SAM riboswitch aptamer (S box leader): a 105-nucleotide RNA sequence from Alicyclobacillus sp. SO9. The family's consensus secondary structure is taken from published work.
[Rfam]
RNA sequence: CUCUUAUCGUGAGCGGCAGAGGGACUGGCCCGAUGAAGCCCGGCAACCGGUGGAUCGUACACAAGGUGCUAAAUCCUGCGGGGAGACUUUCCCGAGAGAUAAGGG
Numbered sequence: 001c002u003c004u005u006a007u008c009g010u011g012a013g014c015g016g017c018a019g020a021g022g023g024a025c026u027g028g029c030c031c032g033a034u035g036a037a038g039c040c041c042g043g044c045a046a047c048c049g050g051u052g053g054a055u056c057g058u059a060c061a062c063a064a065g066g067u068g069c070u071a072a073a074u075c076c077u078g079c080g081g082g083g084a085g086a087c088u089u090u091c092c093c094g095a096g097a098g099a100u101a102a103g104g105g
Stems, first nucleotide, its partner, number of pairs: 001105008013041001015040003021031003025078001027076002042070004047066002050062003074097001079094006